[Rfam]
RNA sequence: CUGGUUCCGGUUCACGUUCCCCGUGAGGGGACGACCCGGCGACC
Numbered sequence: 001c002u003g004g005u006u007c008c009g010g011u012u013c014a015c016g017u018u019c020c021c022c023g024u025g026a027g028g029g030g031a032c033g034a035c036c037c038g039g040c041g042a043c044c
Stems, first nucleotide, its partner, number of pairs: 003044003007039004015033007
Shown here is a 44-nucleotide RNA sequence from Nocardioides panacis, a member of the family "L31-Actinobacteria ribosomal protein leader". It is annotated as a cis-regulatory leader. A search with the family's covariance model found it, with a score of 50 bits. Pairs were carried over by alignment from the consensus structure, which is taken from published work. Lineage of the source: Bacteria > Actinomycetes > Propionibacteriales > Nocardioidaceae > Nocardioides.